Annotation: This 98-nucleotide RNA sequence from Gossypium davidsonii belongs to the Rfam family "Plastid-psbA-1 3UTR RNA". It scores 84 bits against the family's covariance model. It is annotated as a cis-regulatory element. The source organism's lineage runs through Eukaryota, Viridiplantae, Tracheophyta, malvids and Gossypium.

RNA sequence: UUGAAGCUCCAUCUACAAAUAGAUGAGACUUUAGUUUUAGAAAUAAAGGAGCAAUCACCACUUUCUUGUUCUAGUAAGAGUGUUGGUAUUGCUCCUUU
Numbered sequence: 001u002u003g004a005a006g007c008u009c010c011a012u013c014u015a016c017a018a019a020u021a022g023a024u025g026a027g028a029c030u031u032u033a034g035u036u037u038u039a040g041a042a043a044u045a046a047a048g049g050a051g052c053a054a055u056c057a058c059c060a061c062u063u064u065c066u067u068g069u070u071c072u073a074g075u076a077a078g079a080g081u082g083u084u085g086g087u088a089u090u091g092c093u094c095c096u097u098u
Stems, first nucleotide, its partner, number of pairs: 008023002011020002045098011060083002063080005

Pairs were carried over by alignment from the consensus structure, which was predicted with LocARNA.